[Rfam]
RNA sequence: AAUAAAGAGCCAUAAACCCGGUGACAACCGGAGGCAUAAAGUCACAGAGUCUAAGGCGUCUUAUAAAACGCAGCGAUAGCCUGGUUGCCAAA
Numbered sequence: 001a002a003u004a005a006a007g008a009g010c011c012a013u014a015a016a017c018c019c020g021g022u023g024a025c026a027a028c029c030g031g032a033g034g035c036a037u038a039a040a041g042u043c044a045c046a047g048a049g050u051c052u053a054a055g056g057c058g059u060c061u062u063a064u065a066a067a068a069c070g071c072a073g074c075g076a077u078a079g080c081c082u083g084g085u086u087g088c089c090a091a092a
Base pairs, nucleotide, nucleotide: 012037013036018031019030020029021028022027040086041085042084043083046082047081049077050076051075056071057070058069059068
The family of this 92-nucleotide sequence from Syntrophomonas zehnderi is "c-di-GMP-I riboswitch aptamer". Taxonomically the source falls in Syntrophomonas zehnderi (Bacteria, Clostridia, Eubacteriales, Syntrophomonas).